[Rfam]
RNA sequence: ACCUCAUCCAGAGGGGCAGAGGGACACGGCCCGAUGAAGCCCCGGCAACCACGGCUCCCGACCAUCGAUCGCCCAGCGAUCCGGUCGGCGGCAGCAGGUGCCACAUCCGUCCCGCGACGACCGUCGCGGGGAAGAUGAGCC
Numbered sequence: 001a002c003c004u005c006a007u008c009c010a011g012a013g014g015g016g017c018a019g020a021g022g023g024a025c026a027c028g029g030c031c032c033g034a035u036g037a038a039g040c041c042c043c044g045g046c047a048a049c050c051a052c053g054g055c056u057c058c059c060g061a062c063c064a065u066c067g068a069u070c071g072c073c074c075a076g077c078g079a080u081c082c083g084g085u086c087g088g089c090g091g092c093a094g095c096a097g098g099u100g101c102c103a104c105a106u107c108c109g110u111c112c113c114g115c116g117a118c119g120a121c122c123g124u125c126g127c128g129g130g131g132a133a134g135a136u137g138a139g140c141c
Stems, first nucleotide, its partner, number of pairs: 003139006013043005021032003026110004044102004049098002052094001106133001111130006

Rfam assigns this 141-nucleotide RNA from Nakamurella flavida to the family "SAM riboswitch aptamer (S box leader)". NCBI's taxonomy places the organism under Bacteria, Bacillati, Actinomycetes, Nakamurellaceae, Nakamurella. Its family is annotated with regulation of gene expression in the Gene Ontology. From the family's description: The SAM riboswitch is found upstream of a number of genes which code for proteins involved in methionine or cysteine biosynthesis in Gram-positive bacteria. The family's consensus secondary structure is taken from published work. The match comes from Rfam's covariance-model search (68 bits).